This 372-nucleotide RNA sequence from Nocardioides luteus belongs to the Rfam family "transfer-messenger RNA". Rfam describes the family as follows. Bacterial tmRNA, also known as 10Sa RNA or SsrA, is named for its dual tRNA and mRNA-like properties. The organism belongs to Nocardioides, within Bacteria. By type it is a non-coding RNA gene. The base pairs follow the family's consensus structure, which is taken from published work.

[Rfam]
RNA sequence: GGGGCUGAUCGGUUUCGACUUGGGACGUUGCUCCCAGGGGAAGCGGGUCGAGGAGCCAGCGUCAUCUCGUAAACGAUCGCUGGAAACCAAUAACUGCCAACGCUAAGCGCAGUUCCUUCGCUCUCGCCGCCUGACGCGGUGAUCGAAGCGUCUGACCGAGUAUCCGUCUCCGGCUCGGAUCCAGGCGUCAUCUAGGAGACUCCACCUCAUGCACAUGCCGACGGGGCAUGAGGGACAUCUAGUCGGCUGAGCCUGUCGGGGACGUGUCUGCGUCGAGCCCCGGGGAUGAGAGAACGCCACCCACAGACUGCACCCGGAGAAGACCUGGCACGGCGCUCGAGGACCGGGGUUCGAUUCCCCGCAGCUCCACUC
Numbered sequence: 001g002g003g004g005c006u007g008a009u010c011g012g013u014u015u016c017g018a019c020u021u022g023g024g025a026c027g028u029u030g031c032u033c034c035c036a037g038g039g040g041a042a043g044c045g046g047g048u049c050g051a052g053g054a055g056c057c058a059g060c061g062u063c064a065u066c067u068c069g070u071a072a073a074c075g076a077u078c079g080c081u082g083g084a085a086a087c088c089a090a091u092a093a094c095u096g097c098c099a100a101c102g103c104u105a106a107g108c109g110c111a112g113u114u115c116c117u118u119c120g121c122u123c124u125c126g127c128c129g130c131c132u133g134a135c136g137c138g139g140u141g142a143u144c145g146a147a148g149c150g151u152c153u154g155a156c157c158g159a160g161u162a163u164c165c166g167u168c169u170c171c172g173g174c175u176c177g178g179a180u181c182c183a184g185g186c187g188u189c190a191u192c193u194a195g196g197a198g199a200c201u202c203c204a205c206c207u208c209a210u211g212c213a214c215a216u217g218c219c220g221a222c223g224g225g226g227c228a229u230g231a232g233g234g235a236c237a238u239c240u241a242g243u244c245g246g247c248u249g250a251g252c253c254u255g256u257c258g259g260g261g262a263c264g265u266g267u268c269u270g271c272g273u274c275g276a277g278c279c280c281c282g283g284g285g286a287u288g289a290g291a292g293a294a295c296g297c298c299a300c301c302c303a304c305a306g307a308c309u310g311c312a313c314c315c316g317g318a319g320a321a322g323a324c325c326u327g328g329c330a331c332g333g334c335g336c337u338c339g340a341g342g343a344c345c346g347g348g349g350u351u352c353g354a355u356u357c358c359c360c361g362c363a364g365c366u367c368c369a370c371u372c
Stems, first nucleotide, its partner, number of pairs: 001368007019341006028332001032330001034328005044316005049069005056083006124142007149187006156178005163173001166200006205233008217247005250287001252285003257282003263275002266308004272302001345361005